The record is a 52-nucleotide RNA from Candidatus Filomicrobium marinum, which matches "serC leader" in Rfam. It is annotated as a cis-regulatory leader. This family is a putative regulatory RNA structure that is found upstream of the serC-serA operon in some alpha-proteobacteria. The final stem of the structure overlaps the ribosome binding site of the serC reading frame. It scores 60 bits against the family's covariance model. The literature on the family includes a 2005 paper in Genome Biol by Corbino et al., "Evidence for a second class of S-adenosylmethionine riboswitches and other regulatory RNA motifs in alpha-proteobacteria". The organism belongs to Filomicrobium, within Bacteria.

RNA sequence: CAGUGGGACACCUCCCCCCAACGGGAGGCUGCUACUUGGAAGGGUAGUGUAC
Numbered sequence: 001c002a003g004u005g006g007g008a009c010a011c012c013u014c015c016c017c018c019c020a021a022c023g024g025g026a027g028g029c030u031g032c033u034a035c036u037u038g039g040a041a042g043g044g045u046a047g048u049g050u051a052c
Base pairs, nucleotide, nucleotide: 011028012027013026014025015024016023032047033046034045035044036043037042